[Rfam]
c-di-GMP-I riboswitch aptamer: a 103-nucleotide RNA from Acetobacterium woodii. The family's consensus secondary structure is taken from published work. A search with the family's covariance model found it, with a score of 62 bits. The organism belongs to Acetobacterium woodii, within Bacteria. Gene Ontology term of the family: cyclic-di-GMP binding.
RNA sequence: AAUAAACAAAGGCAUAACAGGUGAAAACUUGGGACGCAAAGCUAUAGGGUCUAAGUCGAUGGAUUGUUUAAAAUUCAUUAUGAUACGACAGCCAGUUGCCACA
Numbered sequence: 001a002a003u004a005a006a007c008a009a010a011g012g013c014a015u016a017a018c019a020g021g022u023g024a025a026a027a028c029u030u031g032g033g034a035c036g037c038a039a040a041g042c043u044a045u046a047g048g049g050u051c052u053a054a055g056u057c058g059a060u061g062g063a064u065u066g067u068u069u070a071a072a073a074u075u076c077a078u079u080a081u082g083a084u085a086c087g088a089c090a091g092c093c094a095g096u097u098g099c100c101a102c103a
Base pairs, nucleotide, nucleotide: 012037013036018031019030020029021028022027040097041096042095043094047093048092049089050088051087056083057082058081